Shown here is a 174-nucleotide sequence from Gottfriedia endophytica, a member of the family "Lysine riboswitch aptamer".
The organism belongs to Gottfriedia, within Bacteria.
Riboswitches are metabolite binding domains within certain messenger RNAs that serve as precision sensors for their corresponding targets.
Gene Ontology term of the family: lysine biosynthetic process.
A reference for the family is Mandal et al. (2003), "Riboswitches Control Fundamental Biochemical Pathways in Bacillus subtilis and Other Bacteria", Cell.
RNA sequence: CAAUUUCAUAGAGGUUGCGGUGUAAAAGAGUACCAUUUUGGAGAACAGUGGGUUUGCUGAAAAAAUGGGAAAGGGUAUACCGCCGAAAUGAUAAACUUCCACUAAGUUUAUUGUUGGGGCUACAUUUAAGAAAUGUAGAACUGUCACAUGUUUAUGUGAAGUGCUAUUGAAGAG
Numbered sequence: 001c002a003a004u005u006u007c008a009u010a011g012a013g014g015u016u017g018c019g020g021u022g023u024a025a026a027a028g029a030g031u032a033c034c035a036u037u038u039u040g041g042a043g044a045a046c047a048g049u050g051g052g053u054u055u056g057c058u059g060a061a062a063a064a065a066u067g068g069g070a071a072a073g074g075g076u077a078u079a080c081c082g083c084c085g086a087a088a089u090g091a092u093a094a095a096c097u098u099c100c101a102c103u104a105a106g107u108u109u110a111u112u113g114u115u116g117g118g119g120c121u122a123c124a125u126u127u128a129a130g131a132a133a134u135g136u137a138g139a140a141c142u143g144u145c146a147c148a149u150g151u152u153u154a155u156g157u158g159a160a161g162u163g164c165u166a167u168u169g170a171a172g173a174g
Stems, first nucleotide, its partner, number of pairs: 006169001008167004017083008033068007087115012116142002120138007144159006